[Rfam]
RNA: Wolbachia sRNA 46
RNA sequence: AGCUAUGCAAACACAAAGGUGUCAUUCCAGCGCGUGACGCUGGAAUCCAGUUGAGCUAUUUCAACAAAAAUACUGCAUUUUGAGAUGAACGUCUAUUCUCACCAGACUUAUUUACAAGUAUAACAAUUAAAGUCUGGAUUCCAGUGUCAAGCACUGGAAUGACAUCAUAGGGGCACUGCCCUUU
Number, nucleotide and partner (000 for none) at each position: 001a000002g000003c000004u000005a000006u000007g000008c000009a000010a000011a000012c178013a177014c000015a000016a000017a000018g000019g000020u164021g163022u162023c161024a160025u159026u158027c157028c156029a155030g154031c000032g152033c151034g000035u149036g148037a147038c146039g145040c144041u143042g142043g141044a140045a139046u138047c137048c136049a135050g134051u000052u000053g000054a000055g000056c000057u000058a000059u000060u000061u000062c000063a000064a000065c000066a000067a000068a000069a000070a000071u000072a000073c000074u000075g000076c000077a000078u000079u000080u000081u000082g000083a000084g000085a000086u000087g000088a000089a000090c000091g000092u000093c000094u000095a000096u000097u000098c000099u000100c000101a000102c000103c000104a000105g000106a000107c000108u000109u000110a000111u000112u000113u000114a000115c000116a000117a000118g000119u000120a000121u000122a000123a000124c000125a000126a000127u000128u000129a000130a000131a000132g000133u000134c050135u049136g048137g047138a046139u045140u044141c043142c042143a041144g040145u039146g038147u037148c036149a035150a000151g033152c032153a000154c030155u029156g028157g027158a026159a025160u024161g023162a022163c021164a020165u000166c000167a000168u000169a000170g000171g000172g000173g000174c000175a000176c000177u013178g012179c000180c000181c000182u000183u000184u000